The family of this 52-nucleotide sequence from Maritimibacter fusiformis is "ffh sRNA". NCBI's taxonomy places the organism under Bacteria, Pseudomonadati, Rhodobacterales, Roseobacteraceae, Maritimibacter. It scores 63 bits against the family's covariance model. The literature on the family includes a 2009 paper in BMC Genomics by Meyer et al., "Identification of candidate structured RNAs in the marine organism 'Candidatus Pelagibacter ubique'". It is annotated as a small RNA. Pairs were carried over by alignment from the consensus structure, which is taken from published work.
[Rfam]
RNA sequence: CAUGGCCGGGAUCGCCCCCCGUCAGCGCGUUGCGCCCACGGGGGCGCACCUG
Number, nucleotide and partner (000 for none) at each position: 001c000002a000003u000004g000005g000006c000007c000008g000009g000010g000011a000012u000013c000014g000015c000016c044017c043018c042019c041020c040021g039022u038023c000024a000025g035026c034027g033028c032029g000030u000031u000032g028033c027034g026035c025036c000037c000038a022039c021040g020041g019042g018043g017044g016045c000046g000047c000048a000049c000050c000051u000052g000